[Rfam]
RNA sequence: CUAGAGAAGGCGUCCAAAUCUGCCCAUGGCAUUUCCCUGUACGUUAGCGAUGAUCCGAAAGGUAGCAACGAAGUACUAGGACCAGAUGCGCCAGAGUUCCCUGAUCAGGAUGGCGCGCUGGU
Numbered sequence: 001c002u003a004g005a006g007a008a009g010g011c012g013u014c015c016a017a018a019u020c021u022g023c024c025c026a027u028g029g030c031a032u033u034u035c036c037c038u039g040u041a042c043g044u045u046a047g048c049g050a051u052g053a054u055c056c057g058a059a060a061g062g063u064a065g066c067a068a069c070g071a072a073g074u075a076c077u078a079g080g081a082c083c084a085g086a087u088g089c090g091c092c093a094g095a096g097u098u099c100c101c102u103g104a105u106c107a108g109g110a111u112g113g114c115g116c117g118c119u120g121g122u
Stems, first nucleotide, its partner, number of pairs: 001079004006074001009069001010044004015039002021031004047066002055062002082121004087117007100109003

Shown here is a 122-nucleotide sequence, a member of the family "Flavobacterium-1 RNA". Rfam's curators put it in the seed alignment. The family's consensus secondary structure is taken from published work. The family's RNA type in Rfam is small RNA.